[Rfam]
Archaeal large subunit ribosomal RNA: a 100-nucleotide part of an RNA from candidate division MSBL1 archaeon SCGC-AAA382C18. Rfam links the family to the GO terms ribosome and structural constituent of ribosome.

RNA sequence: GACAAGGCCUGAAAGGAAGGAAUCUCCUCAAAGGAAUCCGUGGCGAUGCGGUAGUACGAGAGGAGAGGACCAAGGUCGUGUCUUCCGUUUGGAAAUACGG
Numbered sequence: 001g002a003c004a005a006g007g008c009c010u011g012a013a014a015g016g017a018a019g020g021a022a023u024c025u026c027c028u029c030a031a032a033g034g035a036a037u038c039c040g041u042g043g044c045g046a047u048g049c050g051g052u053a054g055u056a057c058g059a060g061a062g063g064a065g066a067g068g069a070c071c072a073a074g075g076u077c078g079u080g081u082c083u084u085c086c087g088u089u090u091g092g093a094a095a096u097a098c099g100g
Base pairs, nucleotide, nucleotide: 001082002081003080004079006077007076008075009074010073015071016070023066024065025064026063027062028061029060033057038051039050040049041048042047085100086099087098088097